[Rfam]
RNA sequence: CACUCGGAACCACUGAAUUUAUGUGUGUACUUGACGGCCAACAAGAGCAUCGAUCUAGCACCAUAUAAAUUCAGUAAUUUCGCGU
Numbered sequence: 001c002a003c004u005c006g007g008a009a010c011c012a013c014u015g016a017a018u019u020u021a022u023g024u025g026u027g028u029a030c031u032u033g034a035c036g037g038c039c040a041a042c043a044a045g046a047g048c049a050u051c052g053a054u055c056u057a058g059c060a061c062c063a064u065a066u067a068a069a070u071u072c073a074g075u076a077a078u079u080u081c082g083c084g085u
Stems, first nucleotide, its partner, number of pairs: 012075011024063002027061002030058002033055002035052002

Rfam assigns this 85-nucleotide RNA sequence from Caenorhabditis elegans to the family "mir-83 microRNA precursor family". Rfam links the family to the GO terms miRNA-mediated post-transcriptional gene silencing and RISC complex. For this family Rfam cites "An abundant class of tiny RNAs with probable regulatory roles in Caenorhabditis elegans" (Lau et al., Science, 2001). The family has 6 seed sequences and 60 matches in Rfam 15.1.